This 192-nucleotide RNA sequence from Dickeya dadantii belongs to the Rfam family "Yersinia sRNA 276". On this family, see Nuss et al., PLoS Genet 2015: "Transcriptomic profiling of Yersinia pseudotuberculosis reveals reprogramming of the Crp regulon by temperature and uncovers Crp as a master regulator of small RNAs".
RNA sequence: CACCGACAUCAGCGAUUCGUUCUGCGAGCCUUGUCCUACCGCCAGAUACGCGUUCAUGCCCAGCUCUUUCAUCUGCUGUUCGCCGAUGACGCGGGUGGUGACCUGGCUGUAGCCGUCGGCCAACUGGCGCGCCUGCGAGGCCAGAUAGGCGGCGUUACAGAUGUUAGGCGGCAUGUUGCCCAGAUCUUUAGC
Numbered sequence: 001c002a003c004c005g006a007c008a009u010c011a012g013c014g015a016u017u018c019g020u021u022c023u024g025c026g027a028g029c030c031u032u033g034u035c036c037u038a039c040c041g042c043c044a045g046a047u048a049c050g051c052g053u054u055c056a057u058g059c060c061c062a063g064c065u066c067u068u069u070c071a072u073c074u075g076c077u078g079u080u081c082g083c084c085g086a087u088g089a090c091g092c093g094g095g096u097g098g099u100g101a102c103c104u105g106g107c108u109g110u111a112g113c114c115g116u117c118g119g120c121c122a123a124c125u126g127g128c129g130c131g132c133c134u135g136c137g138a139g140g141c142c143a144g145a146u147a148g149g150c151g152g153c154g155u156u157a158c159a160g161a162u163g164u165u166a167g168g169c170g171g172c173a174u175g176u177u178g179c180c181c182a183g184a185u186c187u188u189u190a191g192c
Stems, first nucleotide, its partner, number of pairs: 005186002012032001014030001016028005033043001035041001050059002062077003078132002081129005087123001091120002094117004099109002102106001133160003137156002140153003164183002167180003
Overview
The organism belongs to Dickeya dadantii, within Bacteria. The match comes from Rfam's covariance-model search (187 bits). The family's RNA type in Rfam is antisense RNA.